The record is a 259-nucleotide part of an RNA from Clostridiaceae bacterium 14S0207, which matches "Bacterial large subunit ribosomal RNA" in Rfam.
The match comes from Rfam's covariance-model search (2941 bits).
The organism belongs to Clostridiaceae, within Bacteria.

[Rfam]
RNA sequence: GGAAAUUUGAGAGGAGCUGUCCUUAGUACGAGAGGACCGGGAUGGACUGACCUCUGGUGCACCAGUUGUCACGCCAGUGGCACAGCUGGGUAGCUAUGUCGGGAAGGGAUAAACACUGAAAGCAUCUAAGUGUGAAGCCCACCUCAAGAUUAGAUUUCCCAUGAUUAAUUCAGUAAGACCCCUUGAAGAACACAAGGUUGAUAGGUGAGAGGUGUAAGCGUGGUAACAUGUUCAGCUGACUCAUACUAAUAGGUCGAGG
Numbered sequence: 001g002g003a004a005a006u007u008u009g010a011g012a013g014g015a016g017c018u019g020u021c022c023u024u025a026g027u028a029c030g031a032g033a034g035g036a037c038c039g040g041g042a043u044g045g046a047c048u049g050a051c052c053u054c055u056g057g058u059g060c061a062c063c064a065g066u067u068g069u070c071a072c073g074c075c076a077g078u079g080g081c082a083c084a085g086c087u088g089g090g091u092a093g094c095u096a097u098g099u100c101g102g103g104a105a106g107g108g109a110u111a112a113a114c115a116c117u118g119a120a121a122g123c124a125u126c127u128a129a130g131u132g133u134g135a136a137g138c139c140c141a142c143c144u145c146a147a148g149a150u151u152a153g154a155u156u157u158c159c160c161a162u163g164a165u166u167a168a169u170u171c172a173g174u175a176a177g178a179c180c181c182c183u184u185g186a187a188g189a190a191c192a193c194a195a196g197g198u199u200g201a202u203a204g205g206u207g208a209g210a211g212g213u214g215u216a217a218g219c220g221u222g223g224u225a226a227c228a229u230g231u232u233c234a235g236c237u238g239a240c241u242c243a244u245a246c247u248a249a250u251a252g253g254u255c256g257a258g259g
Stems, first nucleotide, its partner, number of pairs: 001159008011145004017045007047102005055096003062089005067082006106140003113133005162172003174257001177255004181197005202248003205244005211237002218231005